[Rfam]
This 102-nucleotide RNA from Ornithorhynchus anatinus belongs to the Rfam family "mir-130 microRNA precursor family". Its family is annotated with RISC complex and miRNA-mediated post-transcriptional gene silencing in the Gene Ontology. A search with the family's covariance model found it, with a score of 45 bits. Taxonomically the source falls in Ornithorhynchus (Eukaryota, Bilateria, Gnathostomata, Amniota).

RNA sequence: CCCAAGCCCGGGCUCUUUCCACUGAGCCACGCUGCUUCUCACUAUUACUACUAGAAUACUGUAGCAGCAGCGUGGCUCAGUGGAAAGAGCCCGGGCUUUGGA
Number, nucleotide and partner (000 for none) at each position: 001c000002c101003c100004a000005a097006g096007c095008c094009c093010g092011g000012g090013c089014u088015c087016u086017u085018u084019c083020c000021a000022c080023u079024g078025a077026g076027c075028c074029a073030c072031g071032c070033u069034g068035c067036u066037u000038c000039u000040c000041a000042c000043u000044a000045u000046u000047a000048c000049u000050a000051c000052u000053a000054g000055a000056a000057u000058a000059c000060u000061g000062u000063a000064g000065c000066a036067g035068c034069a033070g032071c031072g030073u029074g028075g027076c026077u025078c024079a023080g022081u000082g000083g019084a018085a017086a016087g015088a014089g013090c012091c000092c010093g009094g008095g007096c006097u005098u000099u000100g003101g002102a000

The literature on the family includes a 2002 paper in Curr Biol by Lagos-Quintana et al., "Identification of tissue-specific microRNAs from mouse".